[Rfam]
Lysine riboswitch aptamer: a 176-nucleotide RNA from Clostridium tetani.
RNA sequence: UAGAAAGGUAGAGGCGCGGUAUUUAAUAGUAUCUGUACAGAUAAAAGCAAGAUGAUGUACAGUGAAAGGAAAUAUCGCCGAAGCAUGCAGUUAAAGCUUUGAUACUGUAUGACUGGUCUUAUUUAAAAUAUGAAUAAGAUUGUCACAAAAUGAAUUUGUGGAGAGCUAUCAUUCAA
Number, nucleotide and partner (000 for none) at each position: 001u000002a000003g000004a000005a000006a000007g170008g169009u168010a167011g166012a000013g000014g000015c000016g078017c077018g076019g075020u074021a073022u072023u071024u070025a000026a000027u000028a000029g000030u000031a000032u000033c062034u061035g060036u059037a058038c057039a056040g000041a000042u000043a000044a000045a000046a000047g000048c000049a000050a000051g000052a000053u000054g000055a000056u039057g038058u037059a036060c035061a034062g033063u000064g000065a000066a000067a000068g000069g000070a024071a023072a022073u021074a020075u019076c018077g017078c016079c000080g000081a000082a114083g113084c111085a110086u109087g108088c107089a106090g105091u104092u000093a000094a000095a000096g000097c000098u000099u000100u000101g000102a000103u000104a091105c090106u089107g088108u087109a086110u085111g084112a000113c083114u082115g141116g140117u139118c138119u137120u136121a135122u134123u133124u132125a131126a000127a000128a000129u000130a000131u125132g124133a123134a122135u121136a120137a119138g118139a117140u116141u115142g000143u161144c160145a159146c158147a157148a156149a155150a000151u000152g000153a000154a000155u149156u148157u147158g146159u145160g144161g143162a000163g000164a000165g000166c011167u010168a009169u008170c007171a000172u000173u000174c000175a000176a000
Lineage of the source: Bacteria > Bacillati > Clostridia > Clostridiaceae > Clostridium tetani. It scores 116 bits against the family's covariance model.